[Rfam]
RNA: TPP riboswitch aptamer (THI element)
Organism: Bifidobacterium pullorum
RNA sequence: ACCGACAUGCAGGGGAACCCCGCACGGGGUUGAGAUGGGCCACAAGCCCGACCCUUUGAACCUGUUGGUUAAGACCAUCGUAGGGAGCAGAUAUGAGCAUCGA
Numbered sequence: 001a002c003c004g005a006c007a008u009g010c011a012g013g014g015g016a017a018c019c020c021c022g023c024a025c026g027g028g029g030u031u032g033a034g035a036u037g038g039g040c041c042a043c044a045a046g047c048c049c050g051a052c053c054c055u056u057u058g059a060a061c062c063u064g065u066u067g068g069u070u071a072a073g074a075c076c077a078u079c080g081u082a083g084g085g086a087g088c089a090g091a092u093a094u095g096a097g098c099a100u101c102g103a
Stems, first nucleotide, its partner, number of pairs: 008089003011055004017030005037049004061084004066077003